[Rfam]
RNA sequence: AAAUAAAAAGCCCUGCAGAAAAACCUGCAGGGUCCUUCUAUAUCCAUUUCUGGAAAGAAGGCAAAGGGAGAGGAGAAACCGGAGGAAGAACUUAUGGGGAAACGUAAGUCUUCUCCGCGG
Numbered sequence: 001a002a003a004u005a006a007a008a009a010g011c012c013c014u015g016c017a018g019a020a021a022a023a024c025c026u027g028c029a030g031g032g033u034c035c036u037u038c039u040a041u042a043u044c045c046a047u048u049u050c051u052g053g054a055a056a057g058a059a060g061g062c063a064a065a066g067g068g069a070g071a072g073g074a075g076a077a078a079c080c081g082g083a084g085g086a087a088g089a090a091c092u093u094a095u096g097g098g099g100a101a102a103c104g105u106a107a108g109u110c111u112u113c114u115c116c117g118c119g120g
Stems, first nucleotide, its partner, number of pairs: 011032008033068005043054003080117004085113004090109005